[Rfam]
RNA: Lysine riboswitch aptamer
Organism: Halanaerobium sp. DL-01
RNA sequence: AGAUGGGGUAGAGGUGCAGAGACUGAUUAGUAAUUUUGGGCAUAACACAGGACAGUGGUCUAAAAUGAAAGGUGGAUCUGCCGAAGCUUUCUGUUUUGUCCGGAACAGAGUGCUGGGAUUGUAUAUAAGAUAUGCAGUACUGUCACCAUAUUUACUCAGUUGGUGAUGUGCUACCUCUCUU
Number, nucleotide and partner (000 for none) at each position: 001a000002g000003a000004u000005g000006g176007g175008g174009u173010a172011g171012a000013g000014g000015u000016g081017c080018a079019g078020a077021g000022a000023c074024u000025g000026a000027u000028u000029a000030g000031u000032a000033a066034u065035u064036u063037u062038g061039g060040g059041c000042a000043u000044a000045a000046c000047a000048c000049a000050g000051g000052a000053c000054a000055g000056u000057g000058g000059u040060c039061u038062a037063a036064a035065a034066u033067g000068a000069a000070a000071g000072g000073u000074g023075g000076a000077u020078c019079u018080g017081c016082c000083g000084a000085a114086g113087c112088u000089u110090u109091c108092u107093g106094u105095u104096u103097u000098g000099u000100c000101c000102g000103g096104a095105a094106c093107a092108g091109a090110g089111u000112g087113c086114u085115g141116g140117g000118a138119u137120u136121g135122u134123a133124u132125a131126u000127a000128a000129g000130a000131u125132a124133u123134g122135c121136a120137g119138u118139a000140c116141u115142g000143u166144c165145a164146c163147c162148a161149u000150a000151u000152u000153u000154a000155c000156u000157c000158a000159g000160u000161u148162g147163g146164u145165g144166a143167u000168g000169u000170g000171c011172u010173a009174c008175c007176u006177c000178u000179c000180u000181u000